Notes:
The family of this 57-nucleotide RNA sequence from Mukdenia rossii is "Plastid-psbA-3 3UTR RNA". The base pairs follow the family's consensus structure, which was predicted with LocARNA. The sequence is in the family's curated seed alignment. Clan: Plastid-psbA 3UTR RNA clan.
[Rfam]
RNA sequence: AAAGGAGCAAUAGCCACUUUCUUGUUUUAUCAAGAGGGUUGGUAUUGCUCCUUUACU
Dot-bracket structure: ((((((((((((.(....((((((......))))))....).))))))))))))...
Rfam describes the family as follows. Plastid psbA-3 is a non-coding RNA (ncRNA) present in plastids. It was identified in inverted repeat sequences in the 3 prime untranslate region (3UTR) of photosystem II quinone-binding protein (psbA). On this family, see Richter et al., Plant Commun 2023: "Retrograde signaling in plants: A critical review focusing on the GUN pathway and beyond".